[Rfam]
RNA sequence: GCGUCCCGACCUCAUCCUGGCUGUUCCCCUCACCCGACUCUGUGGUGGUGGGGUCUGGGGGUGGACGCAGAUUAAUUUACCUCUUGUGUUAGGAGGGCUGCCAAAGGCAUGUGCAAACCCUUAAAGGCAAGAGAGGACACU
Numbered sequence: 001g002c003g004u005c006c007c008g009a010c011c012u013c014a015u016c017c018u019g020g021c022u023g024u025u026c027c028c029c030u031c032a033c034c035c036g037a038c039u040c041u042g043u044g045g046u047g048g049u050g051g052g053g054u055c056u057g058g059g060g061g062u063g064g065a066c067g068c069a070g071a072u073u074a075a076u077u078u079a080c081c082u083c084u085u086g087u088g089u090u091a092g093g094a095g096g097g098c099u100g101c102c103a104a105a106g107g108c109a110u111g112u113g114c115a116a117a118c119c120c121u122u123a124a125a126g127g128c129a130a131g132a133g134a135g136g137a138c139a140c141u
Stems, first nucleotide, its partner, number of pairs: 002067005010060002026053002028050001030048004080136006089126002093122005099116001100114002103112001105110001